[Rfam]
RNA: Plastid-ccsA-ndhD-2 3UTR RNA
Organism: Glycine soja
RNA sequence: UAUUUGAGAACCCUUUGAAUCAAAUAUUGUAAUAAUGAUUUAAGGGGUUCUCAAAA
Numbered sequence: 001u002a003u004u005u006g007a008g009a010a011c012c013c014u015u016u017g018a019a020u021c022a023a024a025u026a027u028u029g030u031a032a033u034a035a036u037g038a039u040u041u042a043a044g045g046g047g048u049u050c051u052c053a054a055a056a
Stems, first nucleotide, its partner, number of pairs: 004054019